[Rfam]
RNA: FMN riboswitch aptamer (RFN element)
RNA sequence: UAGUUUCUUCGGGGCAGGGUGAAAUUCCCGACCGGCGGUAUAGCCCGCGAGCCUUAAUUGGUUGAUCUGGUGUAAUUCCAGUGCCGACAGUAGAGUCUGGAUGAUAGAAGAAAUCA
Dot-bracket structure: ..((((((((......(((.......))).[[((((((....[[))))..(((......)))....((((.......)))).]])).(((....]]))).......))))))))..